[Rfam]
RNA: Hepatitis C virus J7880 RNA
RNA sequence: GCUAAGGCCAAGGCAUCCACUGUGAAGGCAGACUUGCUAUCCGUCGAGGAGGCUUGUAGCCUGACGCCCCCCCACUCGGCCAGAUCAAAAUUUGGCUACGGGGCGAAGGAUGUCCGAAGCCAU
Numbered sequence: 001g002c003u004a005a006g007g008c009c010a011a012g013g014c015a016u017c018c019a020c021u022g023u024g025a026a027g028g029c030a031g032a033c034u035u036g037c038u039a040u041c042c043g044u045c046g047a048g049g050a051g052g053c054u055u056g057u058a059g060c061c062u063g064a065c066g067c068c069c070c071c072c073c074a075c076u077c078g079g080c081c082a083g084a085u086c087a088a089a090a091u092u093u094g095g096c097u098a099c100g101g102g103g104c105g106a107a108g109g110a111u112g113u114c115c116g117a118a119g120c121c122a123u
Stems, first nucleotide, its partner, number of pairs: 006120001012114007022065002025062001028057002035050001037048002068103004074097001076095002078092002